[Rfam]
RNA sequence: CCCCUGCUGUUCCUCCCUGAGCAGGCGUCUACCGUGACAGCGGAAGACGGUUUGAACCCCAGCCGGAUGGCUGGGGUUUCUUUU
Numbered sequence: 001c002c003c004c005u006g007c008u009g010u011u012c013c014u015c016c017c018u019g020a021g022c023a024g025g026c027g028u029c030u031a032c033c034g035u036g037a038c039a040g041c042g043g044a045a046g047a048c049g050g051u052u053u054g055a056a057c058c059c060c061a062g063c064c065g066g067a068u069g070g071c072u073g074g075g076g077u078u079u080c081u082u083u084u
Stems, first nucleotide, its partner, number of pairs: 003025006027048004032043003057076008